[Rfam]
RNA sequence: CGUCACCUGCGCAACUGGCGAUGGGGCGUCACGAACCGAGCGUUCGCGAGCCUGAGGUGGUGAACCACCGGGAAGCGCAGGCGGCAGGGGCAACAGCCCCCGUCGUUUCAGCCGUUCGCCUGGGCAGCCCUG
Dot-bracket structure: ..((.(((((((..(([[[[[...................................((((....))))..))..))))))).))........................(.(((..]]]]]..))).).....
Numbered sequence: 001c002g003u004c005a006c007c008u009g010c011g012c013a014a015c016u017g018g019c020g021a022u023g024g025g026g027c028g029u030c031a032c033g034a035a036c037c038g039a040g041c042g043u044u045c046g047c048g049a050g051c052c053u054g055a056g057g058u059g060g061u062g063a064a065c066c067a068c069c070g071g072g073a074a075g076c077g078c079a080g081g082c083g084g085c086a087g088g089g090g091c092a093a094c095a096g097c098c099c100c101c102g103u104c105g106u107u108u109c110a111g112c113c114g115u116u117c118g119c120c121u122g123g124g125c126a127g128c129c130c131u132g
Stems, first nucleotide, its partner, number of pairs: 003084002006081007015072002017120005057068004109127001111125003